The record is a 114-nucleotide sequence from Daphnia galeata, which matches "Potassium channel RNA editing signal" in Rfam. Rfam 15.1 lists 14,095 matches to the family in 1,000 species. The base pairs follow the family's consensus structure, which is taken from published work.
[Rfam]
RNA sequence: GUCGGCUACGGAGACAUGGCUCCAAAAACUUAUGUCGGCAUGUUUGUUGGCGCUCUUUGCGCUCUGGCCGGCGUGUUAACCAUUGCCUUGCCCGUACCUGUCAUCGUCUCCAAU
Numbered sequence: 001g002u003c004g005g006c007u008a009c010g011g012a013g014a015c016a017u018g019g020c021u022c023c024a025a026a027a028a029c030u031u032a033u034g035u036c037g038g039c040a041u042g043u044u045u046g047u048u049g050g051c052g053c054u055c056u057u058u059g060c061g062c063u064c065u066g067g068c069c070g071g072c073g074u075g076u077u078a079a080c081c082a083u084u085g086c087c088u089u090g091c092c093c094g095u096a097c098c099u100g101u102c103a104u105c106g107u108c109u110c111c112a113a114u
Base pairs, nucleotide, nucleotide: 001114002113004111005110008107009106010105011104013102014101015100016099018097021094037077038076039075040074049063050062051061